RNA sequence: CGGUGACUAAUGAAGGCUUGGUCUGAAAGCCCUUGAUUGGGUGAGGCAAGGCCUGAUGUCAUCACUG
Numbered sequence: 001c002g003g004u005g006a007c008u009a010a011u012g013a014a015g016g017c018u019u020g021g022u023c024u025g026a027a028a029g030c031c032c033u034u035g036a037u038u039g040g041g042u043g044a045g046g047c048a049a050g051g052c053c054u055g056a057u058g059u060c061a062u063c064a065c066u067g
Stems, first nucleotide, its partner, number of pairs: 001067005015053005021047004030041003
Selenocysteine insertion sequence 1: a 67-nucleotide RNA from Albula glossodonta. The incorporation of selenocysteine into a protein sequence is directed by an in-frame UGA codon (usually a stop codon) within the coding region of the mRNA. Selenoprotein mRNAs contain a conserved secondary structure in the 3' UTR that is required for the distinction of UGA stop from UGA selenocysteine. Taxonomically the source falls in Albula (Eukaryota, Teleostomi, Euteleostomi, Albulidae). It scores 35 bits against the family's covariance model.